[Rfam]
RNA: c-di-AMP riboswitch aptamer (ydaO/yuaA leader)
RNA sequence: GACGAAGUCCCGCCGCGUACGUCCUCGGAGCCGGGGACCCAACAGAUCAGGCGCACCACGCGCAGGUCCCCCGGGGUGAAUCGGCCACCAGAACCACGAGUGAACGCGAUCACACGCUCCGCGUGUGCCUCGUCGCCGUGUGGGUGGCUGUAGGGCGAAUUCCCCUUCCGCCCGAACCCGUCAGCUAACCCGGUAGGCGGCCGAAGGAGAGGCA
Numbered sequence: 001g002a003c004g005a006a007g008u009c010c011c012g013c014c015g016c017g018u019a020c021g022u023c024c025u026c027g028g029a030g031c032c033g034g035g036g037a038c039c040c041a042a043c044a045g046a047u048c049a050g051g052c053g054c055a056c057c058a059c060g061c062g063c064a065g066g067u068c069c070c071c072c073g074g075g076g077u078g079a080a081u082c083g084g085c086c087a088c089c090a091g092a093a094c095c096a097c098g099a100g101u102g103a104a105c106g107c108g109a110u111c112a113c114a115c116g117c118u119c120c121g122c123g124u125g126u127g128c129c130u131c132g133u134c135g136c137c138g139u140g141u142g143g144g145u146g147g148c149u150g151u152a153g154g155g156c157g158a159a160u161u162c163c164c165c166u167u168c169c170g171c172c173c174g175a176a177c178c179c180g181u182c183a184g185c186u187a188a189c190c191c192g193g194u195a196g197g198c199g200g201c202c203g204a205a206g207g208a209g210a211g212g213c214a
Stems, first nucleotide, its partner, number of pairs: 011199004018029001020027001030194006040073001074179003082150008153173004
Dot-bracket structure: ..........((((...(.(......).)((((((....(................................)(((.....((((((((.....................................................))))))))..((((.............))))...))).........)))))).))))...............